[Rfam]
RNA sequence: AUACUUACCUGGCACUGGGAAUGCCUUGAUCACACAAAGGAGGCUUCCCCGAGCGGAGGCCAUCCAUUGCUCUCGGGGUGGCUAACGUUCGCCACUUCCGCAAAUAACGGUUGUUUGGGGUGCGCAAUUUUUGGUAGUGGGACUGCGUUCACGCUAUCCCAU
Numbered sequence: 001a002u003a004c005u006u007a008c009c010u011g012g013c014a015c016u017g018g019g020a021a022u023g024c025c026u027u028g029a030u031c032a033c034a035c036a037a038a039g040g041a042g043g044c045u046u047c048c049c050c051g052a053g054c055g056g057a058g059g060c061c062a063u064c065c066a067u068u069g070c071u072c073u074c075g076g077g078g079u080g081g082c083u084a085a086c087g088u089u090c091g092c093c094a095c096u097u098c099c100g101c102a103a104a105u106a107a108c109g110g111u112u113g114u115u116u117g118g119g120g121u122g123c124g125c126a127a128u129u130u131u132u133g134g135u136a137g138u139g140g141g142a143c144u145g146c147g148u149u150c151a152c153g154c155u156a157u158c159c160c161a162u
Base pairs, nucleotide, nucleotide: 012123013122014121015120017049018048019047020046021045023044024043025042026041027040051090052089053088054087056086058083059082060081062079063078064077065076092118093117094116099109100108138161139160140159141158142157145154146153147152